The family of this 91-nucleotide RNA sequence from Streptomyces sp. WM6378 is "dauA ncRNA motif".
Rfam links the family to the GO term regulation of gene expression.
From the family's description: dauA ncRNA motif was reported as a strong cis regulatory motif candidate, with potential to be a cis regulatory riboswitch type, it have been identified in genomes of the genus Streptomyces.
Lineage of the source: Bacteria > Bacillati > Actinomycetota > Streptomycetaceae > Streptomyces.
A reference for the family is Narunsky et al. (2024), "The discovery of novel noncoding RNAs in 50 bacterial genomes", Nucleic Acids Res.
RNA sequence: ACGCCCCUGUCGACAGCACGCCAAGAGCGGCCGCGAGUCCGGCUCCGCCGCUUGGCGUUGCCCGGCGGGUCUACCGAACCGAGGCGUCAUG
Numbered sequence: 001a002c003g004c005c006c007c008u009g010u011c012g013a014c015a016g017c018a019c020g021c022c023a024a025g026a027g028c029g030g031c032c033g034c035g036a037g038u039c040c041g042g043c044u045c046c047g048c049c050g051c052u053u054g055g056c057g058u059u060g061c062c063c064g065g066c067g068g069g070u071c072u073a074c075c076g077a078a079c080c081g082a083g084g085c086g087u088c089a090u091g
Base pairs, nucleotide, nucleotide: 001087002086003085004084005083010065011064012063015059016058017057019054020053027048029044030043031042032041033040068080069079